[Rfam]
RNA sequence: CUGCGUGAUGAUCUGCUAGUUAAGUGCCAUCGUGUCUGGGCCACUGAUGCUCUGUGAUGGAACUGAGGAUCUGAGCAG
Numbered sequence: 001c002u003g004c005g006u007g008a009u010g011a012u013c014u015g016c017u018a019g020u021u022a023a024g025u026g027c028c029a030u031c032g033u034g035u036c037u038g039g040g041c042c043a044c045u046g047a048u049g050c051u052c053u054g055u056g057a058u059g060g061a062a063c064u065g066a067g068g069a070u071c072u073g074a075g076c077a078g
Stems, first nucleotide, its partner, number of pairs: 001078004
Dot-bracket structure: ((((......................................................................))))
RNA: Small nucleolar RNA SNORD66